[Rfam]
A member of the RNA family "Small nucleolar RNA Z13/snr52" from Rhizoctonia solani, 100 nucleotides long. A search with the family's covariance model found it, with a score of 88 bits.
RNA sequence: ACAUAGCCAGUGAUGAAGCAUUUCGGAUGUAAAAUCAAUAUUGUCCGAGAGCGCAUAAACCCAUGUGGAUAUUUCCGUUGCCUUCCUUCUGAGUCUUCUC
Dot-bracket structure: ..(.(..................((((..............................................))))...................).).